[Rfam]
RNA sequence: ACUUUGCAGGGAUGAUGAAUCAAUUAGAUGUGUGAUGGAAAAAAACUUCCACAUGAACGCAACUAUUGAGGCAUAUUUAUGCUGACCUGUCAUAAU
Numbered sequence: 001a002c003u004u005u006g007c008a009g010g011g012a013u014g015a016u017g018a019a020u021c022a023a024u025u026a027g028a029u030g031u032g033u034g035a036u037g038g039a040a041a042a043a044a045a046c047u048u049c050c051a052c053a054u055g056a057a058c059g060c061a062a063c064u065a066u067u068g069a070g071g072c073a074u075a076u077u078u079a080u081g082c083u084g085a086c087c088u089g090u091c092a093u094a095a096u
Base pairs, nucleotide, nucleotide: 001096003094005092006091007089008088009087010086
This 96-nucleotide sequence from Dendrobium nobile belongs to the Rfam family "Small nucleolar RNA Z266".
NCBI's taxonomy places the organism under Eukaryota, Tracheophyta, Petrosaviidae, Asparagales, Dendrobium.
It scores 56 bits against the family's covariance model.
The family's RNA type in Rfam is C/D-box small nucleolar RNA.